[Rfam]
RNA sequence: GUGCAAUUUAGGGCAUGUCCGUCCCCCUGGGCCUCUCAUAGUGCCCCACGCCAGAGCAAACUGUGGCCUUGAACUAUUGCCUGGCCUCGGCCCGUAGGCAGCAGGCACUGAAGUGGGUUACCCAGUG
Numbered sequence: 001g002u003g004c005a006a007u008u009u010a011g012g013g014c015a016u017g018u019c020c021g022u023c024c025c026c027c028u029g030g031g032c033c034u035c036u037c038a039u040a041g042u043g044c045c046c047c048a049c050g051c052c053a054g055a056g057c058a059a060a061c062u063g064u065g066g067c068c069u070u071g072a073a074c075u076a077u078u079g080c081c082u083g084g085c086c087u088c089g090g091c092c093c094g095u096a097g098g099c100a101g102c103a104g105g106c107a108c109u110g111a112a113g114u115g116g117g118u119u120a121c122c123c124a125g126u127g
Base pairs, nucleotide, nucleotide: 001044008041009040010039012037013036015034017032018030019029064120065119066118067117068116069115075110076109080105081104082101084099085098086097087096
RNA: Small nucleolar RNA SNORA42/SNORA80 family
Organism: Myotis myotis